Source information: This 81-nucleotide RNA sequence from Butyrivibrio sp. CAG:318 belongs to the Rfam family "ZMP/ZTP riboswitch aptamer (pfl RNA motif)". The family's consensus secondary structure is taken from published work.
RNA sequence: UAUCAGCUGCGUAACUGACGGAUACGUGGGAUUACCCACAGGGAGCGCAGUCUUAGUAAGCCGACCGUCUGGGCAGCCGUU
Numbered sequence: 001u002a003u004c005a006g007c008u009g010c011g012u013a014a015c016u017g018a019c020g021g022a023u024a025c026g027u028g029g030g031a032u033u034a035c036c037c038a039c040a041g042g043g044a045g046c047g048c049a050g051u052c053u054u055a056g057u058a059a060g061c062c063g064a065c066c067g068u069c070u071g072g073g074c075a076g077c078c079g080u081u
Stems, first nucleotide, its partner, number of pairs: 006051007015042002017069005026039004060074003
Dot-bracket structure: .....(((((((..(([[[[[....((((......)))).))..)))))))........(((..]]]]]..))).......